[Rfam]
RNA sequence: UAGGCAGCAACAAGAAAGCGUGCUAGUUAUGAGUUCCGCUUGCUUGCUGAUACAAUGCUGCCAGAGCAAAAUGUCAAGAACAGUUCAGUUUAGCGUAGUCUAUAAACUGAUCUACACGUGACAUUACAUUG
Numbered sequence: 001u002a003g004g005c006a007g008c009a010a011c012a013a014g015a016a017a018g019c020g021u022g023c024u025a026g027u028u029a030u031g032a033g034u035u036c037c038g039c040u041u042g043c044u045u046g047c048u049g050a051u052a053c054a055a056u057g058c059u060g061c062c063a064g065a066g067c068a069a070a071a072u073g074u075c076a077a078g079a080a081c082a083g084u085u086c087a088g089u090u091u092a093g094c095g096u097a098g099u100c101u102a103u104a105a106a107c108u109g110a111u112c113u114a115c116a117c118g119u120g121a122c123a124u125u126a127c128a129u130u131g
Stems, first nucleotide, its partner, number of pairs: 004061006017048004022043002025040002028038001029034001073122004082113002085110008

This 131-nucleotide RNA from Drosophila albomicans belongs to the Rfam family "Drosophila small cajal body-specific RNA PsiU2-38.40.4".
Taxonomically the source falls in Drosophila (Eukaryota, Opisthokonta, Pancrustacea, Panorpida).
It scores 108 bits against the family's covariance model.